Rfam assigns this 78-nucleotide sequence from Pantherophis guttatus to the family "mir-27 microRNA precursor family".
A search with the family's covariance model found it, with a score of 71 bits.
NCBI's taxonomy places the organism under Eukaryota, Teleostomi, Tetrapoda, Squamata, Pantherophis.
RNA sequence: GCAUAGGGUAGGGCUUAGCUCACUUGUGAACAGCGUUUUUUGAAGCCAUGUUCACAGUGGCUAAGUUCCGCCACUUGG
Numbered sequence: 001g002c003a004u005a006g007g008g009u010a011g012g013g014c015u016u017a018g019c020u021c022a023c024u025u026g027u028g029a030a031c032a033g034c035g036u037u038u039u040u041u042g043a044a045g046c047c048a049u050g051u052u053c054a055c056a057g058u059g060g061c062u063a064a065g066u067u068c069c070g071c072c073a074c075u076u077g078g
Stems, first nucleotide, its partner, number of pairs: 011068010026055007

A reference for the family is Chen et al. (2005), "The developmental miRNA profiles of zebrafish as determined by small RNA cloning", Genes Dev. Rfam links the family to the GO terms RISC complex and miRNA-mediated post-transcriptional gene silencing.